[Rfam]
RNA sequence: ACUAUCGGGAAGCGAUCUCCCGACGAGGCUCCGGCUGAAGAAUCGCGUCCAACCUGCAUUCUCUGCAAGGACGCGCCAUG
Number, nucleotide and partner (000 for none) at each position: 001a000002c000003u000004a000005u023006c022007g021008g020009g019010a018011a000012g000013c000014g000015a000016u000017c000018u010019c009020c008021c007022g006023a005024c000025g000026a000027g000028g000029c000030u000031c000032c000033g000034g000035c000036u000037g000038a000039a000040g000041a000042a000043u000044c000045g074046c073047g072048u071049c070050c069051a000052a000053c000054c000055u000056g000057c000058a000059u000060u000061c000062u000063c000064u000065g000066c000067a000068a000069g050070g049071a048072c047073g046074c045075g000076c000077c000078a000079u000080g000
Background:
The family of this 80-nucleotide sequence from Methylobacterium nodulans is "chrB-a RNA". The family's consensus secondary structure is taken from published work.